A member of the RNA family "Nematode snoRNA ceN105" from Caenorhabditis elegans, 141 nucleotides long. Pairs were carried over by alignment from the consensus structure, which was predicted with RNAalifold. NCBI's taxonomy places the organism under Eukaryota, Protostomia, Ecdysozoa, Rhabditina, Caenorhabditis.

[Rfam]
RNA sequence: GAUUGUCGUGAAUCUUGAUCGGCGUGUUUAUUUUACCCGCGUUGAUUGUAAAGGCCGACAUAUAUCAAAAUUUGACAUUAAUGCUGGAAGUUUCUGAAAUAGUUCCAUUUUUCUUCCAAUUAUUUCAAAUGUCAAACAAAC
Numbered sequence: 001g002a003u004u005g006u007c008g009u010g011a012a013u014c015u016u017g018a019u020c021g022g023c024g025u026g027u028u029u030a031u032u033u034u035a036c037c038c039g040c041g042u043u044g045a046u047u048g049u050a051a052a053g054g055c056c057g058a059c060a061u062a063u064a065u066c067a068a069a070a071u072u073u074g075a076c077a078u079u080a081a082u083g084c085u086g087g088a089a090g091u092u093u094c095u096g097a098a099a100u101a102g103u104u105c106c107a108u109u110u111u112u113c114u115u116c117c118a119a120u121u122a123u124u125u126c127a128a129a130u131g132u133c134a135a136a137c138a139a140a141c
Stems, first nucleotide, its partner, number of pairs: 004060005010055001016048011029035002071136009080124004085118006098109003